[Rfam]
RNA sequence: CCCCCGCUUUUCCUCCCUGAGCGGGGCCUUGAUGUGUGACAGCAAAAAAGGCUUGCAACCCCGGCUUAUGGCCGGGGUUUUUUUU
Numbered sequence: 001c002c003c004c005c006g007c008u009u010u011u012c013c014u015c016c017c018u019g020a021g022c023g024g025g026g027c028c029u030u031g032a033u034g035u036g037u038g039a040c041a042g043c044a045a046a047a048a049a050g051g052c053u054u055g056c057a058a059c060c061c062c063g064g065c066u067u068a069u070g071g072c073c074g075g076g077g078u079u080u081u082u083u084u085u
Base pairs, nucleotide, nucleotide: 003025004024005023006022007021008020027051028050029049030048058078059077060076061075062074063073064072065071
Overview: The record is an 85-nucleotide RNA from Curvibacter sp. PAE-UM, which matches "Burkholderia RNA 7 (anti-hemB)" in Rfam. The match comes from Rfam's covariance-model search (61 bits). The organism belongs to Curvibacter, within Bacteria. A reference for the family is Khoo et al. (2012), "Computational discovery and RT-PCR validation of novel Burkholderia conserved and Burkholderia pseudomallei unique sRNAs", BMC Genomics. Pairs were carried over by alignment from the consensus structure, which is taken from published work.